Shown here is a 76-nucleotide sequence from Crocodylus porosus, a member of the family "Mammalian CPEB3 ribozyme". The match comes from Rfam's covariance-model search (38 bits).
[Rfam]
RNA sequence: GGUUGCAAGUUUGAGGCCAUAGCAGAAGCGCUCACCGCGCAGCCUGUUGGAUGCCAAGGAAUCUGCAAAUUUAGCU
Dot-bracket structure: ..............[[[...(((.((((((.......))).]]]...(((((.(....).)))))....))).)))
The organism belongs to Crocodylus, within Eukaryota.
The base pairs follow the family's consensus structure, which is taken from published work.